[Rfam]
This 110-nucleotide RNA from Nomascus leucogenys belongs to the Rfam family "Y RNA". The source organism's lineage runs through Eukaryota, Metazoa, Teleostomi, Haplorrhini and Nomascus. Rfam describes the family as follows. Y RNAs are components of the Ro ribonucleoprotein particle (Ro RNP), in association with Ro60 and La proteins.
RNA sequence: GGCUGGUCUGAAGGUAGUGACUUAUUUCAAUUGAUUGUUCACAGUUACAGAUAGCACUCUUUGUUCUACUCCUUCCCUGCAUUCUCACUACUGCACUUGGUUAGUCUUUA
Numbered sequence: 001g002g003c004u005g006g007u008c009u010g011a012a013g014g015u016a017g018u019g020a021c022u023u024a025u026u027u028c029a030a031u032u033g034a035u036u037g038u039u040c041a042c043a044g045u046u047a048c049a050g051a052u053a054g055c056a057c058u059c060u061u062u063g064u065u066c067u068a069c070u071c072c073u074u075c076c077c078u079g080c081a082u083u084c085u086c087a088c089u090a091c092u093g094c095a096c097u098u099g100g101u102u103a104g105u106c107u108u109u110a
Stems, first nucleotide, its partner, number of pairs: 001106008010098002014094002016089005041070001043067002